[Rfam]
RNA sequence: AUGUAUCCAAUAGGAAUUGAACCUACGAAUUCGUUAAUUAUCAGUUGGGUGCUUUAACUAUUCAACCAUGGAUGC
Numbered sequence: 001a002u003g004u005a006u007c008c009a010a011u012a013g014g015a016a017u018u019g020a021a022c023c024u025a026c027g028a029a030u031u032c033g034u035u036a037a038u039u040a041u042c043a044g045u046u047g048g049g050u051g052c053u054u055u056a057a058c059u060a061u062u063c064a065a066c067c068a069u070g071g072a073u074g075c
Stems, first nucleotide, its partner, number of pairs: 003075006011025004040069002044066008

Shown here is a 75-nucleotide sequence from Ziziphus jujuba, a member of the family "Plastid-ycf2 5UTR RNA". The family's RNA type in Rfam is cis-regulatory element. The family has 204 seed sequences and 3,521 matches in Rfam 15.1. About the family: Plastid ycf2 is a non-coding RNA (ncRNA) recognised in plastids. It was found in the prime untranslated region (5UTR) of ycf2 genes, it presents a tRNA-like motif which suggests it can be involved in mRNA maturation, particularly involved in defining the precise 5' end of the transcript.